Overview: The record is an 81-nucleotide sequence from Atractosteus spatula, which matches "mir-459 microRNA precursor family" in Rfam. The match comes from Rfam's covariance-model search (79 bits). Gene Ontology terms of the family: miRNA-mediated post-transcriptional gene silencing and RISC complex. Pairs were carried over by alignment from the consensus structure, which was predicted with RNAalifold.
RNA sequence: CCUCCUGUUGUCAGUAACAAGGAUUCAUCCUGCUGUGACUAUGUGGUGUGGCAGGGAAUCUCUGUUACUGGGGGCAGGGUG
Dot-bracket structure: ..........(((((((((.((((((..(((((((..((......)).))))))))))))).)))))))))..........